Overview:
A member of the RNA family "FMN riboswitch aptamer (RFN element)" from Amphibacillus marinus, 143 nucleotides long. A search with the family's covariance model found it, with a score of 116 bits.
RNA sequence: UUGAAUCUUCGGGGCAGGGUGUAAUUCCCGACCGACGGUGAGCAGUAAAUUUUUACUGUAAGUCCGUGACCCGCAUUUUAUUUGCGGUGGACCUGGUGUGAAUCCGGGACCGACAGUUAAAGUCUGGAUGGGAGAAGAUGCAG
Numbered sequence: 001u002u003g004a005a006u007c008u009u010c011g012g013g014g015c016a017g018g019g020u021g022u023a024a025u026u027c028c029c030g031a032c033c034g035a036c037g038g039u040g041a042g043c044a045g046u047a048a049a050u051u052u053u054u055a056c057u058g059u060a061a062g063u064c065c066g067u068g069a070c071c072c073g074c075a076u077u078u079u080a081u082u083u084g085c086g087g088u089g090g091a092c093c094u095g096g097u098g099u100g101a102a103u104c105c106g107g108g109a110c111c112g113a114c115a116g117u118u119a120a121a122g123u124c125u126g127g128a129u130g131g132g133a134g135a136a137g138a139u140g141c142a143g
Stems, first nucleotide, its partner, number of pairs: 003141001005139006017029003031123002033112002035067004062110002071087002092108005114126003
Dot-bracket structure: ..(.((((((......(((.......))).[[((((((.......................[[))))...((.............))....(((((.......)))))]])).(((.....]]))).......)))))).)..
Notes:
Taxonomically the source falls in Amphibacillus (Bacteria, Bacillati, Bacillota, Bacilli). Gene Ontology term of the family: FMN binding.